[Rfam]
The record is a 114-nucleotide RNA sequence from Bombyx mori, which matches "U5 spliceosomal RNA" in Rfam. Gene Ontology terms of the family: spliceosomal tri-snRNP complex assembly and U5 snRNP. The base pairs follow the family's consensus structure, which is taken from published work. NCBI's taxonomy places the organism under Eukaryota, Opisthokonta, Arthropoda, Insecta, Bombyx. The family's RNA type in Rfam is spliceosomal small nuclear RNA. Rfam's curators put it in the seed alignment.
RNA sequence: UAUCUCUGGUUUCCCUUCAAAACGUAUAAAUCUUUCGCCUUUUACUAAAGAUUUCCGUGGAGGGGAACACUCAAAUGAGUCUAUAAUAUUUUUGAUGCCCUGACUUGUCAGGGU
Number, nucleotide and partner (000 for none) at each position: 001u000002a000003u078004c077005u000006c000007u000008g000009g068010u067011u066012u065013c064014c063015c062016u061017u060018c059019a058020a000021a000022a000023c000024g000025u000026a000027u000028a054029a053030a052031u051032c050033u049034u048035u047036c000037g000038c000039c000040u000041u000042u000043u000044a000045c000046u000047a035048a034049a033050g032051a031052u030053u029054u028055c000056c000057g000058u019059g018060g017061a016062g015063g014064g013065g012066a011067a010068c009069a000070c000071u000072c000073a000074a000075a000076u000077g004078a003079g000080u000081c000082u000083a000084u000085a000086a000087u000088a000089u000090u000091u000092u000093u000094g000095a000096u000097g000098c113099c112100c111101u110102g109103a108104c000105u000106u000107g000108u103109c102110a101111g100112g099113g098114u000